[Rfam]
RNA sequence: GGAUGUGAGGGCGAUCUGGCUGCGACAUCUGUCACCCCAUUGAUCGCCAGGGUUGAUUCGGCUGAUCUGGCUGGCUAGGCGGGUGUCCCCUUCCUCCCUCACCGCUCCAUGUGCAUCCCUCCCGAAGCUGCGCGCUCAGUGGAAGAGGACGACCAUCCCAGAUAGAAGGAGUGUACCAAUCUUCGGUCAAGGGUAUACGAUAGCUGCGCUCCCCUGCUAGAACCUCCAAACAAGCUCAAGAUGUUGAGACUCUAGAAAAAGUGCAGAGAAGAGCAGCAGAGUUGAUUA
Numbered sequence: 001g002g003a004u005g006u007g008a009g010g011g012c013g014a015u016c017u018g019g020c021u022g023c024g025a026c027a028u029c030u031g032u033c034a035c036c037c038c039a040u041u042g043a044u045c046g047c048c049a050g051g052g053u054u055g056a057u058u059c060g061g062c063u064g065a066u067c068u069g070g071c072u073g074g075c076u077a078g079g080c081g082g083g084u085g086u087c088c089c090c091u092u093c094c095u096c097c098c099u100c101a102c103c104g105c106u107c108c109a110u111g112u113g114c115a116u117c118c119c120u121c122c123c124g125a126a127g128c129u130g131c132g133c134g135c136u137c138a139g140u141g142g143a144a145g146a147g148g149a150c151g152a153c154c155a156u157c158c159c160a161g162a163u164a165g166a167a168g169g170a171g172u173g174u175a176c177c178a179a180u181c182u183u184c185g186g187u188c189a190a191g192g193g194u195a196u197a198c199g200a201u202a203g204c205u206g207c208g209c210u211c212c213c214c215u216g217c218u219a220g221a222a223c224c225u226c227c228a229a230a231c232a233a234g235c236u237c238a239a240g241a242u243g244u245u246g247a248g249a250c251u252c253u254a255g256a257a258a259a260a261g262u263g264c265a266g267a268g269a270a271g272a273g274c275a276g277c278a279g280a281g282u283u284g285a286u287u288a
Stems, first nucleotide, its partner, number of pairs: 001108003005102007013093002018090002024087010035074002037070003042067004046062003117173001118169003121165001122139001124137002127135002140162001147158003203277003209271002212268001214266004225257001227255001230253001234252001
The record is a 288-nucleotide sequence from Naja naja, which matches "7SK RNA" in Rfam. The family's consensus secondary structure is taken from published work. The family's RNA type in Rfam is non-coding RNA gene. 7SK was discovered as an abundant small nuclear RNA in the mid-70s but a possible function has only recently been suggested. Two independent studies have found that 7SK RNA binds the CDK9/cyclin T complex (known as elongation factor P-TEFb). P-TEFb activates transcription by phosphorylating the C-terminal domain of RNA polymerase II. This process is negatively regulated by the 7SK RNP. The secondary structure of 7SK RNA shown here was proposed by Wasserman and Steitz on the basis of chemical modification and enzymatic cleavage experiments. This family contains a number of annotated pseudogenes and 7SK derived repeats.